[Rfam]
RNA sequence: UAUGAACACUAGGGGAGUCUUUUUUGGGGACUGAGAUUGAGCAAGAUGUUCUAAACCCUUUGAACCUGAUCCGGUUAAAGCUGGCGUAGGGAAGUGGUUAUGUUGUUUC
Numbered sequence: 001u002a003u004g005a006a007c008a009c010u011a012g013g014g015g016a017g018u019c020u021u022u023u024u025u026g027g028g029g030a031c032u033g034a035g036a037u038u039g040a041g042c043a044a045g046a047u048g049u050u051c052u053a054a055a056c057c058c059u060u061u062g063a064a065c066c067u068g069a070u071c072c073g074g075u076u077a078a079a080g081c082u083g084g085c086g087u088a089g090g091g092a093a094g095u096g097g098u099u100a101u102g103u104u105g106u107u108u109c
Base pairs, nucleotide, nucleotide: 007096008095009094010093011059012058013057014056017031018030019029020028021027039051040050041049042048065090066089067088068087071084072083073082074081
Annotation
Shown here is a 109-nucleotide RNA from Robertmurraya siralis, a member of the family "TPP riboswitch aptamer (THI element)". Rfam describes the family as follows. Vitamin B(1) in its active form thiamin pyrophosphate (TPP) is an essential coenzyme that is synthesised by coupling of pyrimidine and thiazole moieties in bacteria. The family has 115 seed sequences and 16,130 matches in Rfam 15.1. NCBI's taxonomy places the organism under Bacteria, Bacillati, Bacilli, Bacillaceae, Robertmurraya. Rfam links the family to the GO term thiamine pyrophosphate binding.